Shown here is a 390-nucleotide RNA from Maudiozyma saulgeensis, a member of the family "RNase MRP". Rfam describes the family as follows. RNase MRP is an enzymatically active ribonucleoprotein with two distinct roles in eukaryotes. It is annotated as a ribozyme.
[Rfam]
RNA sequence: GUCCAUGGCUGAAGAAUCGUCAAUAGUCGGAGCUUGCAACAAGGAAAGCAAUUUUAGUUCUUUCAAAAGUAUGCUCUGGGCAUGAAAGUCUCCCACCUGAUCGUAUGCGGAAAACGCAGUGAGAUUUAAAAAUUUUUACAAUGUUUAAAUCAACUCACUUGGAUGUAUCUGUUUACCACCUCAUUUUGUCUCUGCCUCUUGUAGGGAUUUAUGAAGUGGGAAUAAUUCAUCUAAUAUUGUCCUGGCAAGUAUUCAUACUUGACAGUGUAUAUUUCGGUACUGGGACCUUGUUAGGUCCUAAACGAUAGUUAUGACGAUUGCCUACUGUUCUCUUCUCAUUGUAGAUGGGGAAAAUAGGUAACCCAAUGGAGCUUACUCUUAGCUCAUGGA
Numbered sequence: 001g002u003c004c005a006u007g008g009c010u011g012a013a014g015a016a017u018c019g020u021c022a023a024u025a026g027u028c029g030g031a032g033c034u035u036g037c038a039a040c041a042a043g044g045a046a047a048g049c050a051a052u053u054u055u056a057g058u059u060c061u062u063u064c065a066a067a068a069g070u071a072u073g074c075u076c077u078g079g080g081c082a083u084g085a086a087a088g089u090c091u092c093c094c095a096c097c098u099g100a101u102c103g104u105a106u107g108c109g110g111a112a113a114a115c116g117c118a119g120u121g122a123g124a125u126u127u128a129a130a131a132a133u134u135u136u137u138a139c140a141a142u143g144u145u146u147a148a149a150u151c152a153a154c155u156c157a158c159u160u161g162g163a164u165g166u167a168u169c170u171g172u173u174u175a176c177c178a179c180c181u182c183a184u185u186u187u188g189u190c191u192c193u194g195c196c197u198c199u200u201g202u203a204g205g206g207a208u209u210u211a212u213g214a215a216g217u218g219g220g221a222a223u224a225a226u227u228c229a230u231c232u233a234a235u236a237u238u239g240u241c242c243u244g245g246c247a248a249g250u251a252u253u254c255a256u257a258c259u260u261g262a263c264a265g266u267g268u269a270u271a272u273u274u275c276g277g278u279a280c281u282g283g284g285a286c287c288u289u290g291u292u293a294g295g296u297c298c299u300a301a302a303c304g305a306u307a308g309u310u311a312u313g314a315c316g317a318u319u320g321c322c323u324a325c326u327g328u329u330c331u332c333u334u335c336u337c338a339u340u341g342u343a344g345a346u347g348g349g350g351a352a353a354a355u356a357g358g359u360a361a362c363c364c365a366a367u368g369g370a371g372c373u374u375a376c377u378c379u380u381a382g383c384u385c386a387u388g389g390a
Stems, first nucleotide, its partner, number of pairs: 002390005008383005015319006027079007044064005050058001086374003090371004106118004119139006182290002188286005198277002210271003321358004326353001